[Rfam]
Shown here is a 77-nucleotide RNA from Enterobacteriaceae bacterium strain FGI 57, a member of the family "Nucleoid-associated noncoding RNA 4 (CssrE)". It scores 95 bits against the family's covariance model. It is annotated as a small RNA.

RNA sequence: GGCCGGAUAAGGCGCACGCGCCGCAUCCGGCAACGGUGCCUACUGCCUGAUGCGACGCUAACGCGUCUUAUCAGGCC
Numbered sequence: 001g002g003c004c005g006g007a008u009a010a011g012g013c014g015c016a017c018g019c020g021c022c023g024c025a026u027c028c029g030g031c032a033a034c035g036g037u038g039c040c041u042a043c044u045g046c047c048u049g050a051u052g053c054g055a056c057g058c059u060a061a062c063g064c065g066u067c068u069u070a071u072c073a074g075g076c077c
Base pairs, nucleotide, nucleotide: 002031003030004029005028006027007026008025011022012021013020014019045076046075047074048073049072050071051070052069054067055066056065057064058063